[Rfam]
RNA: mir-81 microRNA precursor family
RNA sequence: CCUCGUUCGGCAAGCGGUUUUCUCGUUGAUCUGAGAUCAAAUAUGCGAGUCCUGAGUUCUCGCUCUGAGAUCAUCGUGAAAGCUAGUUGCCGAGAGGAA
Numbered sequence: 001c002c003u004c005g006u007u008c009g010g011c012a013a014g015c016g017g018u019u020u021u022c023u024c025g026u027u028g029a030u031c032u033g034a035g036a037u038c039a040a041a042u043a044u045g046c047g048a049g050u051c052c053u054g055a056g057u058u059c060u061c062g063c064u065c066u067g068a069g070a071u072c073a074u075c076g077u078g079a080a081a082g083c084u085a086g087u088u089g090c091c092g093a094g095a096g097g098a099a
Stems, first nucleotide, its partner, number of pairs: 009091004016084007024076001027073006034066003